[Rfam]
RNA: c-di-AMP riboswitch aptamer (ydaO/yuaA leader)
Organism: Streptomyces sp. TLI_235
RNA sequence: GUGCGCGUGUCGCUCAAUCCCGCGGUCUGCCUUCGCCGGUGGCCCCGGGAACCGGGGAACCACGUUCCUUGGGGUGAAUCGGCAGGGCCGGUGGCCCAGCCGUAGGAGACCUUCCUGCUCCGAACCCGUCAGCUAACCCGGUCGGCGAGAGGGAAGGAAAGG
Number, nucleotide and partner (000 for none) at each position: 001g000002u000003g000004c000005g000006c000007g000008u000009g000010u000011c147012g146013c145014u144015c000016a000017a000018u050019c049020c048021c047022g046023c000024g000025g000026u000027c000028u000029g000030c000031c000032u000033u000034c000035g000036c000037c000038g000039g000040u000041g000042g000043c000044c000045c000046c022047g021048g020049g019050a018051a142052c141053c140054g139055g138056g137057g000058a000059a000060c000061c071062a070063c000064g000065u000066u000067c000068c000069u000070u062071g061072g127073g126074g125075u000076g000077a000078a000079u000080c102081g101082g100083c099084a000085g000086g000087g000088c000089c000090g000091g000092u000093g000094g000095c000096c000097c000098a000099g083100c082101c081102g080103u000104a000105g121106g120107a119108g118109a000110c000111c000112u000113u000114c000115c000116u000117g000118c108119u107120c106121c105122g000123a000124a000125c074126c073127c072128g000129u000130c000131a000132g000133c000134u000135a000136a000137c056138c055139c054140g053141g052142u051143c000144g014145g013146c012147g011148a000149g000150a000151g000152g000153g000154a000155a000156g000157g000158a000159a000160a000161g000162g000